[Rfam]
RNA sequence: GCAUGGCCGAAUUCUGUUUUACUCUUGAAAUAGUAAAUGCAGUCAGACACCAUGCUAAAUUAUUGUUUUCACACACCGACUCAACAACCGGAUAAGAGUGCUAAUUAUGUGCCUUUUUAUCUUAUGUCAGAGUGAAUACAGAA
Numbered sequence: 001g002c003a004u005g006g007c008c009g010a011a012u013u014c015u016g017u018u019u020u021a022c023u024c025u026u027g028a029a030a031u032a033g034u035a036a037a038u039g040c041a042g043u044c045a046g047a048c049a050c051c052a053u054g055c056u057a058a059a060u061u062a063u064u065g066u067u068u069u070c071a072c073a074c075a076c077c078g079a080c081u082c083a084a085c086a087a088c089c090g091g092a093u094a095a096g097a098g099u100g101c102u103a104a105u106u107a108u109g110u111g112c113c114u115u116u117u118u119a120u121c122u123u124a125u126g127u128c129a130g131a132g133u134g135a136a137u138a139c140a141g142a143a
Base pairs, nucleotide, nucleotide: 001055002054003053004052005051006050014042015041016040017039019037068136069135070134074132076130078128079127080126087125090122091121092120093119094118095117096116097115098114
Overview
Shown here is a 143-nucleotide RNA from Perca flavescens, a member of the family "Small nucleolar RNA SNORA15". Rfam links the family to the GO terms nucleolus and RNA processing. The organism belongs to Perca, within Eukaryota. By type it is an H/ACA-box small nucleolar RNA. The literature on the family includes a 2001 paper in EMBO J by Huttenhofer et al., "RNomics: an experimental approach that identifies 201 candidates for novel, small, non-messenger RNAs in mouse".